[Rfam]
RNA: 23S methyl RNA motif
Organism: Streptococcus danieliae
RNA sequence: AUUUGAUUGAUUUAGCUCAAACCUGUUGUGACCUAAGUUAAUCAAGUUUGGCACCACAUUGUCCGCCGAGCUUGACUCCGGGUGAUGUGGCUAUUUU
Numbered sequence: 001a002u003u004u005g006a007u008u009g010a011u012u013u014a015g016c017u018c019a020a021a022c023c024u025g026u027u028g029u030g031a032c033c034u035a036a037g038u039u040a041a042u043c044a045a046g047u048u049u050g051g052c053a054c055c056a057c058a059u060u061g062u063c064c065g066c067c068g069a070g071c072u073u074g075a076c077u078c079c080g081g082g083u084g085a086u087g088u089g090g091c092u093a094u095u096u097u
Base pairs, nucleotide, nucleotide: 002046003045004044005043006042007041008040009039010038011037012036013035014034015033017031018030019029054090055089056088057087058086059085060084061083062082063081064080065079068078069077070076